[Rfam]
The record is a 136-nucleotide sequence from Populus trichocarpa, which matches "MIR480 microRNA precursor family" in Rfam.
The organism belongs to Populus, within Eukaryota.
Gene Ontology terms of the family: miRNA-mediated post-transcriptional gene silencing and RISC complex.
On this family, see Lu et al., Plant Cell 2005: "Novel and mechanical stress-responsive MicroRNAs in Populus trichocarpa that are absent from Arabidopsis".
Nucleotides: 136
Base pairs, nucleotide, nucleotide: 004134006132007131008129009128012125014123019118025116027113028112029111030110031109
Number, partner (000 for none) and nucleotide at each position: 001000u002000a003000a004134u005000c006132u007131g008129u009128u010000u011000a012125a013000a014123g015000c016000a017000a018000a019118u020000c021000c022000u023000c024000a025116u026000c027113u028112a029111g030110a031109u032000a033000u034000g035000a036000c037000a038000g039000a040000c041000u042000u043000a044000c045000a046000c047000c048000c049000g050000a051000u052000u053000g054000c055000a056000u057000a058000u059000a060000a061000u062000c063000a064000c065000u066000u067000a068000u069000u070000a071000u072000c073000a074000u075000a076000a077000g078000c079000u080000u081000g082000a083000c084000u085000a086000c087000a088000u089000c090000a091000u092000c093000g094000a095000c096000a097000c098000u099000c100000a101000u102000a103000a104000g105000a106000u107000a108000u109031a110030u111029u112028u113027g114000a115000a116025a117000a118019a119000a120000a121000a122000u123014u124000a125012u126000a127000a128009a129008a130000u131007u132006a133000u134004a135000a136000u